[Rfam]
RNA sequence: CUUUUAUAAUUGAAUAGUUCCCAUAUAAUCCCUCUAAUAUGCAGGGGGAGUCUCUACCAGAGGAGCAAAAAUCCUCUGAUUAUGGGUGUAUUUUCAGGAUAG
Numbered sequence: 001c002u003u004u005u006a007u008a009a010u011u012g013a014a015u016a017g018u019u020c021c022c023a024u025a026u027a028a029u030c031c032c033u034c035u036a037a038u039a040u041g042c043a044g045g046g047g048g049a050g051u052c053u054c055u056a057c058c059a060g061a062g063g064a065g066c067a068a069a070a071a072u073c074c075u076c077u078g079a080u081u082a083u084g085g086g087u088g089u090a091u092u093u094u095c096a097g098g099a100u101a102g
Base pairs, nucleotide, nucleotide: 018088020086021085022084023083024082025081029049030048031047032046033045034044035043058078059077060076061075062074063073064072
RNA: Purine riboswitch aptamer